The record is a 106-nucleotide RNA sequence from Rhipicephalus sanguineus, which matches "MIR474 microRNA precursor family" in Rfam. The match comes from Rfam's covariance-model search (52 bits).
RNA sequence: GAAAAUAUCAGCUAGUACAGGCGCCAUGCAUGACCCAAUACAUGUAUUGGGUCAUGGGUCAAUGUAUUGGGUCAUGCGUGGUGCCUGUACUAGCUGAUAUUUUCUU
Numbered sequence: 001g002a003a004a005a006u007a008u009c010a011g012c013u014a015g016u017a018c019a020g021g022c023g024c025c026a027u028g029c030a031u032g033a034c035c036c037a038a039u040a041c042a043u044g045u046a047u048u049g050g051g052u053c054a055u056g057g058g059u060c061a062a063u064g065u066a067u068u069g070g071g072u073c074a075u076g077c078g079u080g081g082u083g084c085c086u087g088u089a090c091u092a093g094c095u096g097a098u099a100u101u102u103u104c105u106u
Base pairs, nucleotide, nucleotide: 001104002103004101005100006099007098008097009096010095011094012093013092014091015090016089017088018087019086020085021084022083023082024081025080026079027078028077029076031054032053033052034051035050036049037048038047039046058073060071
The family has 11 seed sequences and 69 matches in Rfam 15.1. The family's consensus secondary structure was predicted with WAR. The literature on the family includes a 2005 paper in Plant Cell by Lu et al., "Novel and mechanical stress-responsive MicroRNAs in Populus trichocarpa that are absent from Arabidopsis". Lineage of the source: Eukaryota > Opisthokonta > Chelicerata > Rhipicephalinae > Rhipicephalus.